[Rfam]
RNA sequence: ACUAAAUACAGAGGAGCACAUUAUUGAGUAUUAGACAGAUGUUAAUAGAGAGGACUCUAAAUACUGUCUAAGAAGGAGUAACGUGCCGAAAGAUCUACAGUGUCCUUAUUGUAGAUACUUGAUGAAUAAAGGCACACUUUAUUCAUUGUCAUUUUAUAAAUGAUGAGCUGUUUAUGUC
Numbered sequence: 001a002c003u004a005a006a007u008a009c010a011g012a013g014g015a016g017c018a019c020a021u022u023a024u025u026g027a028g029u030a031u032u033a034g035a036c037a038g039a040u041g042u043u044a045a046u047a048g049a050g051a052g053g054a055c056u057c058u059a060a061a062u063a064c065u066g067u068c069u070a071a072g073a074a075g076g077a078g079u080a081a082c083g084u085g086c087c088g089a090a091a092g093a094u095c096u097a098c099a100g101u102g103u104c105c106u107u108a109u110u111g112u113a114g115a116u117a118c119u120u121g122a123u124g125a126a127u128a129a130a131g132g133c134a135c136a137c138u139u140u141a142u143u144c145a146u147u148g149u150c151a152u153u154u155u156a157u158a159a160a161u162g163a164u165g166a167g168c169u170g171u172u173u174a175u176g177u178c
Stems, first nucleotide, its partner, number of pairs: 006173001008171004016086004021081004031071008090120003093116008121147011149163005